[Rfam]
RNA sequence: AUAAAUUUUAUAAACGUCACUCAUAUAAUACUGAUAAUAUGGAUCAGGAGUUUCUACGAGAAACCAUAAAUUUCUCACUAUGAGUAAUCCAGCUUAGAAU
Numbered sequence: 001a002u003a004a005a006u007u008u009u010a011u012a013a014a015c016g017u018c019a020c021u022c023a024u025a026u027a028a029u030a031c032u033g034a035u036a037a038u039a040u041g042g043a044u045c046a047g048g049a050g051u052u053u054c055u056a057c058g059a060g061a062a063a064c065c066a067u068a069a070a071u072u073u074c075u076c077a078c079u080a081u082g083a084g085u086a087a088u089c090c091a092g093c094u095u096a097g098a099a100u
Stems, first nucleotide, its partner, number of pairs: 019085007029049001031047005058076006

Purine riboswitch aptamer: a 100-nucleotide RNA from Anaeromicrobium sediminis.
The base pairs follow the family's consensus structure, which is taken from published work.